[Rfam]
RNA sequence: UUGUCAGGUGGGAUAAUCCUUACCUGUUCCUCCUUUAGAGGGCAGACAGAACAUGAUGAUUGAAGUUCAAAUGGUAAGUGAUUAGCAUCUCUGCUUAAUUAUGACCUGCAACACCCUGAUUGCGCCUGAU
Dot-bracket structure: .......................(((.(((((.....))))))))...........................((.(.((....).).).))....((((((.(...........).))))))........
Numbered sequence: 001u002u003g004u005c006a007g008g009u010g011g012g013a014u015a016a017u018c019c020u021u022a023c024c025u026g027u028u029c030c031u032c033c034u035u036u037a038g039a040g041g042g043c044a045g046a047c048a049g050a051a052c053a054u055g056a057u058g059a060u061u062g063a064a065g066u067u068c069a070a071a072u073g074g075u076a077a078g079u080g081a082u083u084a085g086c087a088u089c090u091c092u093g094c095u096u097a098a099u100u101a102u103g104a105c106c107u108g109c110a111a112c113a114c115c116c117u118g119a120u121u122g123c124g125c126c127u128g129a130u
Stems, first nucleotide, its partner, number of pairs: 024045003028042005073091002076088001078086001079084001096122006103115001
Overview: Shown here is a 130-nucleotide RNA from Marmota monax, a member of the family "U8 small nucleolar RNA". The literature on the family includes a 2001 paper in Gene by Peculis et al., "The U8 snoRNA gene family: identification and characterization of distinct, functional U8 genes in Xenopus". Taxonomically the source falls in Marmota (Eukaryota, Deuterostomia, Rodentia, Marmotini). The base pairs follow the family's consensus structure, which is taken from published work. It is annotated as a C/D-box small nucleolar RNA.